[Rfam]
A member of the RNA family "Small nucleolar RNA SNORA61", 130 nucleotides long.
Rfam classes the family as an H/ACA-box small nucleolar RNA.

RNA sequence: ACCCUGCGGUUUCCCUUUCCCAUCAGAUCUUGACACUGGUCUUGGUGGUCAUAAAGGUGGAAAAGCAGCCUGAAGCUGGUCACACAGCAAUGCAGUUUGCUGUAGAGCAACAGUCCAGACUCAGACAUGC
Dot-bracket structure: ..((..(............(((((.((((........))))..))))).......)..))...............((((.(.........(((.............)))...).))))............
Rfam describes the family as follows. ACA61 is a member of the H/ACA class of snoRNA that guide the sites of modification of uridines to pseudouridines.
Pairs were carried over by alignment from the consensus structure, which was predicted with PFOLD.
Rfam links the family to the GO terms RNA processing and nucleolus.